[Rfam]
RNA sequence: UAAGAGGACGAACUAUCCUGGUUUGCCUGGAACUUUACUGGUGUUUGCAUGAGAAAUCCCAGUCCCCGGCAAUCCAGGAGAGUUGGUCCUUUUACCACCUC
Numbered sequence: 001u002a003a004g005a006g007g008a009c010g011a012a013c014u015a016u017c018c019u020g021g022u023u024u025g026c027c028u029g030g031a032a033c034u035u036u037a038c039u040g041g042u043g044u045u046u047g048c049a050u051g052a053g054a055a056a057u058c059c060c061a062g063u064c065c066c067c068g069g070c071a072a073u074c075c076a077g078g079a080g081a082g083u084u085g086g087u088c089c090u091u092u093u094a095c096c097a098c099c100u101c
Stems, first nucleotide, its partner, number of pairs: 001094009011084004019076003023072005029066002032063003038053001041050002
Dot-bracket structure: (((((((((.((((....(((.(((((.((.(((...(..((......))..).......))).)).))))).)))....)))).))))))))).......
About this RNA:
The family of this 101-nucleotide sequence from Oryctolagus cuniculus is "mir-584 microRNA precursor family". The family's consensus secondary structure was predicted with RNAalifold. Gene Ontology terms of the family: miRNA-mediated post-transcriptional gene silencing and RISC complex.